Shown here is a 72-nucleotide sequence, a member of the family "skipping-rope RNA".

RNA sequence: AGCAACGGAGGACGGAACAGGCAGCCGUCGCCCAUUGUUAGGAGAUGUGGGAAUCGUCCCCCCCCCCUUGCU
Numbered sequence: 001a002g003c004a005a006c007g008g009a010g011g012a013c014g015g016a017a018c019a020g021g022c023a024g025c026c027g028u029c030g031c032c033c034a035u036u037g038u039u040a041g042g043a044g045a046u047g048u049g050g051g052a053a054u055c056g057u058c059c060c061c062c063c064c065c066c067c068u069u070g071c072u
Stems, first nucleotide, its partner, number of pairs: 001072005007067002011029005020058003031042001047065001049063003
Notes
The sequence is in the family's curated seed alignment.